[Rfam]
RNA sequence: GUUGAUGGGAAUGUUGUUUGGCUCGAGGUCAUGUAGGUUGAUUUUGUUAUGUCCAUGGAAUUUUCUAGGAUUUUACUUUCCCGGGAAAGUUUCUGGAUAGCCCUAUAUGAUCUCGGACCAGGCUUCAUUCCCGUCAAC
Numbered sequence: 001g002u003u004g005a006u007g008g009g010a011a012u013g014u015u016g017u018u019u020g021g022c023u024c025g026a027g028g029u030c031a032u033g034u035a036g037g038u039u040g041a042u043u044u045u046g047u048u049a050u051g052u053c054c055a056u057g058g059a060a061u062u063u064u065c066u067a068g069g070a071u072u073u074u075a076c077u078u079u080c081c082c083g084g085g086a087a088a089g090u091u092u093c094u095g096g097a098u099a100g101c102c103c104u105a106u107a108u109g110a111u112c113u114c115g116g117a118c119c120a121g122g123c124u125u126c127a128u129u130c131c132c133g134u135c136a137a138c
Stems, first nucleotide, its partner, number of pairs: 001138013016123006024115014
RNA: mir-166 microRNA precursor family